Background:
A member of the RNA family "Glycine riboswitch aptamer" from Dialister sp. CAG:588, 94 nucleotides long. NCBI's taxonomy places the organism under Bacteria, Bacillota, Negativicutes, Veillonellaceae, Dialister. The match comes from Rfam's covariance-model search (65 bits). Its family is annotated with glycine biosynthetic process in the Gene Ontology.
RNA sequence: UGGACACACUCUGGAGAGUCUCUUAAUGAGCGCCGAAGGUGUAAGGGUUAAAUAUUAAUCCAAAUCUCUCAGGCAAAAGGACAGAGAAUAAACA
Numbered sequence: 001u002g003g004a005c006a007c008a009c010u011c012u013g014g015a016g017a018g019u020c021u022c023u024u025a026a027u028g029a030g031c032g033c034c035g036a037a038g039g040u041g042u043a044a045g046g047g048u049u050a051a052a053u054a055u056u057a058a059u060c061c062a063a064a065u066c067u068c069u070c071a072g073g074c075a076a077a078a079g080g081a082c083a084g085a086g087a088a089u090a091a092a093c094a
Base pairs, nucleotide, nucleotide: 006089009086010085011084012083013082020030021029022028032074033073034072035070036069039068041066045061046060047059048058049057050056051055